Shown here is an 88-nucleotide RNA from Stenotrophomonas sp. BIIR7, a member of the family "SAH (S-adenosyl-L-homocysteine) riboswitch aptamer". Rfam links the family to the GO terms regulation of gene expression and S-adenosylhomocysteine metabolic process. Pairs were carried over by alignment from the consensus structure, which is taken from published work. The match comes from Rfam's covariance-model search (49 bits). The literature on the family includes a 2008 paper in Mol Cell by Wang et al., "Riboswitches that sense S-adenosylhomocysteine and activate genes involved in coenzyme recycling".

RNA sequence: UCCACCGAGGGGCGCUGCGACCGCUGCCGGACCCGAUCCGCACGGCCAGGCUCGGUGGCAGGGCUGGUUCCAACGGCGCCCGGCGAAG
Number, nucleotide and partner (000 for none) at each position: 001u000002c058003c057004a056005c055006c054007g053008a052009g000010g000011g000012g000013c000014g000015c000016u000017g000018c000019g000020a000021c045022c044023g043024c000025u000026g000027c000028c000029g000030g000031a000032c000033c000034c000035g000036a000037u000038c000039c000040g000041c000042a000043c023044g022045g021046c000047c000048a000049g000050g000051c000052u008053c007054g006055g005056u004057g003058g002059c000060a000061g000062g000063g000064c000065u000066g000067g000068u000069u000070c000071c000072a000073a000074c000075g000076g000077c000078g000079c000080c000081c000082g000083g000084c000085g000086a000087a000088g000